The family of this 170-nucleotide sequence from Streptomyces brasiliensis is "Group II catalytic intron D1-D4-3". The organism belongs to Streptomyces, within Bacteria. It scores 125 bits against the family's covariance model. The family has 406 seed sequences and 4,274 matches in Rfam 15.1.
RNA sequence: GUCGCCGCGAGGCGGGGUCCGGAGGAAGCCGGAGGCAAAACCGGGCACUGAGGUACACGAACCGUAUUUAGGCGGGGCGGACUGGGUAAGUCGGCUGACUGCGACGAAGCCCGUUCUCACCAAGAAGGCCGCAACGUAGAUACGGCAGGCGUCCGGGGAAAGUUGCUGUU
Numbered sequence: 001g002u003c004g005c006c007g008c009g010a011g012g013c014g015g016g017g018u019c020c021g022g023a024g025g026a027a028g029c030c031g032g033a034g035g036c037a038a039a040a041c042c043g044g045g046c047a048c049u050g051a052g053g054u055a056c057a058c059g060a061a062c063c064g065u066a067u068u069u070a071g072g073c074g075g076g077g078c079g080g081a082c083u084g085g086g087u088a089a090g091u092c093g094g095c096u097g098a099c100u101g102c103g104a105c106g107a108a109g110c111c112c113g114u115u116c117u118c119a120c121c122a123a124g125a126a127g128g129c130c131g132c133a134a135c136g137u138a139g140a141u142a143c144g145g146c147a148g149g150c151g152u153c154c155g156g157g158g159a160a161a162g163u164u165g166c167u168g169u170u
Base pairs, nucleotide, nucleotide: 002015003014004013005012006011028170030168031167032166035163036162041156042155043154044153045152048148049147050146062145063144064143065142066141067140072137073136074135077132078131079130080129082127084112085111086110087109090105091104092103093102